[Rfam]
THF (Tetrahydrofolate) riboswitch aptamer: a 139-nucleotide RNA sequence from Catenibacillus scindens. Gene Ontology term of the family: tetrahydrofolate metabolic process. Tetrahydrofolate (THF) riboswitch was first reported for Ames et al. as an RNA motif in 5' untranslated (5'-UTR)regions of folate transport and biosynthesis genes in Firmicutes genomes. On this family, see Ames et al., Chem Biol 2010: "A eubacterial riboswitch class that senses the coenzyme tetrahydrofolate".
Nucleotides: 139
Stems, first nucleotide, its partner, number of pairs: 001139005010126010020115003040071002043069008054132003058128001075112003
Number, partner (000 for none) and nucleotide at each position: 001139a002138g003137c004136a005135g006000a007000g008000u009000a010126g011125g012124a013123u014122u015121u016120u017119g018118c019117g020115c021114g022113u023000u024000u025000a026000c027000c028000g029000a030000a031000a032000g033000g034000u035000a036000u037000g038000u039000a040071g041070u042000g043069c044068c045067u046066g047065a048064c049063g050062a051000a052000c053000g054132g055131g056130g057000a058128g059000u060000u061000g062050u063049c064048g065047u066046c067045a068044g069043g070041a071040c072000g073000a074000a075112c076111a077110g078000g079000a080000u081000g082000c083000c084000g085000u086000c087000u088000u089000c090000c091000a092000c093000a094000u095000g096000g097000a098000a099000c100000c101000g102000g103000u104000g105000u106000u107000g108000u109000a110077c111076u112075g113022a114021c115020g116000g117019u118018g119017c120016a121015g122014a123013g124012u125011c126010c127000g128058c129000a130056u131055c132054c133000c134000g135005u136004u137003g138002c139001u